Rfam assigns this 65-nucleotide RNA to the family "GP20-b RNA".

RNA sequence: GGCCAGAUGAUCAGGCCUAAAACGGUCAAUCACGGGGGCGAUGGUUAAGGCCCUAAAACAACCUA
Numbered sequence: 001g002g003c004c005a006g007a008u009g010a011u012c013a014g015g016c017c018u019a020a021a022a023c024g025g026u027c028a029a030u031c032a033c034g035g036g037g038g039c040g041a042u043g044g045u046u047a048a049g050g051c052c053c054u055a056a057a058a059c060a061a062c063c064u065a
Stems, first nucleotide, its partner, number of pairs: 001017004009027004036053004
Background
Rfam's curators put it in the seed alignment.